[Rfam]
RNA sequence: ACGGUCGAUGCGGGAGAGUCCGCGGGUCACCCCCGAACGGACACCGAAGGAGCAAUCCUCCCCGACAAUCUCUCAGGUACCCAUACCGCAUCGAGCUG
Numbered sequence: 001a002c003g004g005u006c007g008a009u010g011c012g013g014g015a016g017a018g019u020c021c022g023c024g025g026g027u028c029a030c031c032c033c034c035g036a037a038c039g040g041a042c043a044c045c046g047a048a049g050g051a052g053c054a055a056u057c058c059u060c061c062c063c064g065a066c067a068a069u070c071u072c073u074c075a076g077g078u079a080c081c082c083a084u085a086c087c088g089c090a091u092c093g094a095g096c097u098g
Stems, first nucleotide, its partner, number of pairs: 006093008019041004043078003046074002050072003056065002
Shown here is a 98-nucleotide RNA from Humibacter ginsenosidimutans, a member of the family "Glycine riboswitch aptamer". This family represents the bacterial glycine riboswitch. A search with the family's covariance model found it, with a score of 64 bits. NCBI's taxonomy places the organism under Bacteria, Bacillati, Actinomycetota, Actinomycetes, Humibacter.